[Rfam]
RNA: tRNA
Nucleotides: 073
Base pairs, nucleotide, nucleotide: 001072002071003070004069005068006067007066010025011024012023013022027043028042029041030040031039049065050064051063052062
Number, partner (000 for none) and nucleotide at each position: 001072g002071g003070g004069g005068a006067u007066g008000u009000a010025g011024c012023u013022c014000a015000a016000a017000u018000g019000g020000u021000a022013g023012a024011g025010c026000a027043c028042u029041c030040g031039c032000u033000u034000u035000g036000c037000a038000u039031g040030u041029g042028a043027g044000a045000g046000g047000c048000a049065u050064g051063g052062g053000u054000u055000u056000c057000g058000a059000u060000c061000c062052c063051u064050c065049g066007c067006a068005u069004c070003u071002c072001c073000a